A member of the RNA family "sroE RNA", 92 nucleotides long. Rfam's curators write: This family consists of a number of bacterial sroE RNA genes of around 90 bases in length. sroE is found in several Enterobacterial species but its function is unknown. By type it is a small RNA. Pairs were carried over by alignment from the consensus structure, which was predicted with PFOLD.
RNA sequence: AUAACGUGAUGGGAAGCGGCGUGCUUCCCGUGUAUGAUUGAACCCGCAUGGCUCCCGUAUCGCUCGGGGAAGCGCUGAGGGUUCAUUUUUAU
Numbered sequence: 001a002u003a004a005c006g007u008g009a010u011g012g013g014a015a016g017c018g019g020c021g022u023g024c025u026u027c028c029c030g031u032g033u034a035u036g037a038u039u040g041a042a043c044c045c046g047c048a049u050g051g052c053u054c055c056c057g058u059a060u061c062g063c064u065c066g067g068g069g070a071a072g073c074g075c076u077g078a079g080g081g082u083u084c085a086u087u088u089u090u091a092u
Stems, first nucleotide, its partner, number of pairs: 010030009039085007054069003